[Rfam]
The record is an 82-nucleotide RNA sequence from Devosia sp. Root413D1, which matches "ZMP/ZTP riboswitch aptamer (pfl RNA motif)" in Rfam. Taxonomically the source falls in Devosia (Bacteria, Pseudomonadota, Hyphomicrobiales, Devosiaceae). Its family is annotated with regulation of purine nucleotide biosynthetic process and one-carbon metabolic process in the Gene Ontology.

RNA sequence: CCGCGUUCGCGCGACUGGCGAGAAGAGAUGGGCCACCAUCGGGGAACGCGAACGACAGCUGCCGCUCGCCUGGGCCCCCCUU
Numbered sequence: 001c002c003g004c005g006u007u008c009g010c011g012c013g014a015c016u017g018g019c020g021a022g023a024a025g026a027g028a029u030g031g032g033c034c035a036c037c038a039u040c041g042g043g044g045a046a047c048g049c050g051a052a053c054g055a056c057a058g059c060u061g062c063c064g065c066u067c068g069c070c071u072g073g074g075c076c077c078c079c080c081u082u
Stems, first nucleotide, its partner, number of pairs: 004054008015043002017070005028039004061075003